[Rfam]
Rhodo-rpoB RNA: an 87-nucleotide RNA sequence from alpha proteobacterium SCGC AAA076-C03. The sequence is in the family's curated seed alignment.
RNA sequence: UUCGGGAGCUAAAGGUGGCACUUUAGCAAGAAUAGGAUGAACUUUGUUUCAUGUGGCCGAUUAGGUUGUGAUGCCCGCACAAACUAU
Numbered sequence: 001u002u003c004g005g006g007a008g009c010u011a012a013a014g015g016u017g018g019c020a021c022u023u024u025a026g027c028a029a030g031a032a033u034a035g036g037a038u039g040a041a042c043u044u045u046g047u048u049u050c051a052u053g054u055g056g057c058c059g060a061u062u063a064g065g066u067u068g069u070g071a072u073g074c075c076c077g078c079a080c081a082a083a084c085u086a087u
Stems, first nucleotide, its partner, number of pairs: 001037003008027007062086003066082005
The family's consensus secondary structure is taken from published work.